[Rfam]
Nucleotides: 052
Base pairs, nucleotide, nucleotide: 008046009045010044011043012042014040015039016038018036019035020034021033022031
Number, partner (000 for none) and nucleotide at each position: 001000u002000u003000u004000u005000u006000c007000a008046u009045a010044u011043a012042a013000g014040u015039a016038u017000g018036u019035c020034c021033u022031g023000u024000g025000c026000a027000a028000u029000u030000u031022u032000c033021g034020g035019g036018a037000c038016a039015u040014a041000c042012u043011u044010a045009u046008a047000c048000u049000a050000a051000a052000a